[Rfam]
RNA: DUF2815 RNA
RNA sequence: GGGUUAGAUGAAUCGGCACCCAUUGAAGUUCGAUUCUAUCGUUAAAAGGAAAUAUCAUCAUG
Numbered sequence: 001g002g003g004u005u006a007g008a009u010g011a012a013u014c015g016g017c018a019c020c021c022a023u024u025g026a027a028g029u030u031c032g033a034u035u036c037u038a039u040c041g042u043u044a045a046a047a048g049g050a051a052a053u054a055u056c057a058u059c060a061u062g
Stems, first nucleotide, its partner, number of pairs: 001021004010036007